RNA sequence: CGUACUCAAACAGGACGGACAGGAUGGUGGCACCGGGGUUGGUAACCACGCGCACUUCACCAAUGGUGGAGUCGUAGACCCCAUGGAACCGCAGCCAGAUGACAAACAGCAGGGCUGCGUAACCUAAGGUGAGGAGGUGGUGACCGAGGAUGUUCCCCAGUUUGGCCGCGUCAUCCCA
Numbered sequence: 001c002g003u004a005c006u007c008a009a010a011c012a013g014g015a016c017g018g019a020c021a022g023g024a025u026g027g028u029g030g031c032a033c034c035g036g037g038g039u040u041g042g043u044a045a046c047c048a049c050g051c052g053c054a055c056u057u058c059a060c061c062a063a064u065g066g067u068g069g070a071g072u073c074g075u076a077g078a079c080c081c082c083a084u085g086g087a088a089c090c091g092c093a094g095c096c097a098g099a100u101g102a103c104a105a106a107c108a109g110c111a112g113g114g115c116u117g118c119g120u121a122a123c124c125u126a127a128g129g130u131g132a133g134g135a136g137g138u139g140g141u142g143a144c145c146g147a148g149g150a151u152g153u154u155c156c157c158c159a160g161u162u163u164g165g166c167c168g169c170g171u172c173a174u175c176c177c178a
Stems, first nucleotide, its partner, number of pairs: 136175006145168002

Shown here is a 178-nucleotide sequence from Prochlorothrix hollandica, a member of the family "Antisense RNA which regulates isiA expression".
A reference for the family is Duhring et al. (2006), "An internal antisense RNA regulates expression of the photosynthesis gene isiA", Proc Natl Acad Sci U S A.